[Rfam]
RNA: Alphaproteobacterial ar14
RNA sequence: CAGAUUGCGGCCUCUCCUCUCCUCCUCCCUGGGGAUGCCGCGAAACCCGCGCGACGCUCUCUCCUCCUCCCUGAGUGCCGCGCAACAAAAGAACGACGGUGCCUCUCCUCCUCCCUGGCACCGUCGUUUUUU
Number, nucleotide and partner (000 for none) at each position: 001c000002a000003g000004a000005u000006u000007g041008c040009g039010g000011c037012c000013u035014c034015u033016c032017c031018u000019c000020u000021c000022c000023u000024c000025c000026u000027c000028c000029c000030u000031g017032g016033g015034g014035a013036u000037g011038c000039c009040g008041c007042g000043a000044a000045a000046c000047c000048c000049g000050c082051g081052c080053g079054a000055c077056g076057c075058u074059c073060u000061c000062u000063c000064c000065u000066c000067c000068u000069c000070c000071c000072u000073g059074a058075g057076u056077g055078c000079c053080g052081c051082g050083c000084a000085a000086c000087a000088a000089a000090a000091g000092a000093a127094c126095g125096a124097c123098g122099g121100u120101g119102c118103c117104u000105c000106u000107c000108c000109u000110c000111c000112u000113c000114c000115c000116u000117g103118g102119c101120a100121c099122c098123g097124u096125c095126g094127u093128u000129u000130u000131u000132u000